[Rfam]
RNA sequence: GUGGGCUGGGGAAGGGCUGCUGGGUGGUUCCAGCCAGCCCCACCCGUGCCCUAGAGCAGCUCCCAGGUGGGCUCCAUGCCGGGCCUCACCUGUGCAGUAACAGGUGUGAACAUUCAUGAAGCAUUUUGAUGGUCAUGUAUGAUACUGCAUACAACU
Numbered sequence: 001g002u003g004g005g006c007u008g009g010g011g012a013a014g015g016g017c018u019g020c021u022g023g024g025u026g027g028u029u030c031c032a033g034c035c036a037g038c039c040c041c042a043c044c045c046g047u048g049c050c051c052u053a054g055a056g057c058a059g060c061u062c063c064c065a066g067g068u069g070g071g072c073u074c075c076a077u078g079c080c081g082g083g084c085c086u087c088a089c090c091u092g093u094g095c096a097g098u099a100a101c102a103g104g105u106g107u108g109a110a111c112a113u114u115c116a117u118g119a120a121g122c123a124u125u126u127u128g129a130u131g132g133u134c135a136u137g138u139a140u141g142a143u144a145c146u147g148c149a150u151a152c153a154a155c156u
Stems, first nucleotide, its partner, number of pairs: 003051004008045003015039004019034004024030001062083003066080004091151009101141002107135003111131004118125002
RNA: Small Cajal body specific RNA 16